[Rfam]
RNA: Small nucleolar RNA SNORA38
RNA sequence: UCCUCCUACAGAGGCGUGUCUGUGGUUGCUUGUCUUUGGACAUUUAAGAAUUGAAGGCAAAGAAAUGUGGGCUUGGAGAAGUCUGGGGUCAGCUUGCUCCCUAAAGGCUCAGGAUCACUCAUCCCACAUAG
Numbered sequence: 001u002c003c004u005c006c007u008a009c010a011g012a013g014g015c016g017u018g019u020c021u022g023u024g025g026u027u028g029c030u031u032g033u034c035u036u037u038g039g040a041c042a043u044u045u046a047a048g049a050a051u052u053g054a055a056g057g058c059a060a061a062g063a064a065a066u067g068u069g070g071g072c073u074u075g076g077a078g079a080a081g082u083c084u085g086g087g088g089u090c091a092g093c094u095u096g097c098u099c100c101c102u103a104a105a106g107g108c109u110c111a112g113g114a115u116c117a118c119u120c121a122u123c124c125c126a127c128a129u130a131g
Stems, first nucleotide, its partner, number of pairs: 002057003006053001016043006024030002069124003073121001091109005